[Rfam]
RNA sequence: AUGAAGGAUGCGGGAGAGACCCCACUAAGGGGCGCCGAAGGGGUAAGUGGCUUAGCCAUGAAACUCUCAGGCAAAAGGACCGUAUCCCGACA
Numbered sequence: 001a002u003g004a005a006g007g008a009u010g011c012g013g014g015a016g017a018g019a020c021c022c023c024a025c026u027a028a029g030g031g032g033c034g035c036c037g038a039a040g041g042g043g044u045a046a047g048u049g050g051c052u053u054a055g056c057c058a059u060g061a062a063a064c065u066c067u068c069a070g071g072c073a074a075a076a077g078g079a080c081c082g083u084a085u086c087c088c089g090a091c092a
Base pairs, nucleotide, nucleotide: 006087007086008085009084010083011082012081013080020032021031022030023029034072035071036070037068038067041066042065043064047059048058